[Rfam]
RNA sequence: GCCCCCGGAGGCGACCGUCCGCCAGCGCGUUGCGCCCGCGGGCGCGUUUUUG
Numbered sequence: 001g002c003c004c005c006c007g008g009a010g011g012c013g014a015c016c017g018u019c020c021g022c023c024a025g026c027g028c029g030u031u032g033c034g035c036c037c038g039c040g041g042g043c044g045c046g047u048u049u050u051u052g
Stems, first nucleotide, its partner, number of pairs: 016044007025035004